A member of the RNA family "Small nucleolar RNA SNORD14" from Apostasia shenzhenica, 113 nucleotides long.

RNA sequence: UGACUGUUAUCAAGGCUUGUUUCUCAAAACAUUCGCAGUGGCCGCCUGAGAGCUUUCGCCUCGCCGGGCUUGAGAGCUGUUGCUGGUUUAUAAUUCCUUGGAUGUCUGAGACG
Numbered sequence: 001u002g003a004c005u006g007u008u009a010u011c012a013a014g015g016c017u018u019g020u021u022u023c024u025c026a027a028a029a030c031a032u033u034c035g036c037a038g039u040g041g042c043c044g045c046c047u048g049a050g051a052g053c054u055u056u057c058g059c060c061u062c063g064c065c066g067g068g069c070u071u072g073a074g075a076g077c078u079g080u081u082g083c084u085g086g087u088u089u090a091u092a093a094u095u096c097c098u099u100g101g102a103u104g105u106c107u108g109a110g111a112c113g
Stems, first nucleotide, its partner, number of pairs: 001113002004110001052077006
On this family, see Samarsky et al., Nucleic Acids Res 1996: "An essential domain in Saccharomyces cerevisiae U14 snoRNA is absent in vertebrates, but conserved in other yeasts". From the family's description: U14 small nucleolar RNA (U14 snoRNA) is required for early cleavages of eukaryotic precursor rRNAs. In yeasts, this molecule possess a stem-loop region (known as the Y-domain) which is essential for function. It scores 67 bits against the family's covariance model. The source organism's lineage runs through Eukaryota, Spermatophyta, Mesangiospermae, Liliopsida and Apostasia. Rfam links the family to the GO terms RNA processing and nucleolus.